[Rfam]
RNA: mir-196 microRNA precursor family
Organism: Panurus biarmicus
RNA sequence: UCUGUGGAUUAGGUAGUUUCAUGUUGUUGGGCUCUGCGUUUCAAACACAAGAACAUGGAACUGCCCGAUUUACUGC
Numbered sequence: 001u002c003u004g005u006g007g008a009u010u011a012g013g014u015a016g017u018u019u020c021a022u023g024u025u026g027u028u029g030g031g032c033u034c035u036g037c038g039u040u041u042c043a044a045a046c047a048c049a050a051g052a053a054c055a056u057g058g059a060a061c062u063g064c065c066c067g068a069u070u071u072a073c074u075g076c
Base pairs, nucleotide, nucleotide: 004073005072006071007070008069009068010067012065013064014063015062016061017060018059019058022055023054024053025052027050028049029048031046
Dot-bracket structure: ...(((((((.((((((((..((((.(((.(..............).))).))))..)))))))).)))))))...